terC RNA: a 59-nucleotide sequence from Pseudooceanicola spongiae. Taxonomically the source falls in Pseudooceanicola (Bacteria, Pseudomonadota, Rhodobacterales, Paracoccaceae). The family's RNA type in Rfam is cis-regulatory element.

RNA sequence: UGCAGCGACCGGGCCCCUCUGGCGAAAGUGGCGGUGCUUUCGUGAUGUCGGCACUGCGU
Numbered sequence: 001u002g003c004a005g006c007g008a009c010c011g012g013g014c015c016c017c018u019c020u021g022g023c024g025a026a027a028g029u030g031g032c033g034g035u036g037c038u039u040u041c042g043u044g045a046u047g048u049c050g051g052c053a054c055u056g057c058g059u
Stems, first nucleotide, its partner, number of pairs: 007052001009051004022043008